[Rfam]
RNA sequence: AUCCUGGUUAAGUGAAUACUUUGCCACAGUCUUAGAAUUUGGCAUAGCUGGGCUGGGGUUCGCUUAGACCGGUGU
Numbered sequence: 001a002u003c004c005u006g007g008u009u010a011a012g013u014g015a016a017u018a019c020u021u022u023g024c025c026a027c028a029g030u031c032u033u034a035g036a037a038u039u040u041g042g043c044a045u046a047g048c049u050g051g052g053c054u055g056g057g058g059u060u061c062g063c064u065u066a067g068a069c070c071g072g073u074g075u
Stems, first nucleotide, its partner, number of pairs: 004072003009066009019057003023053003027050003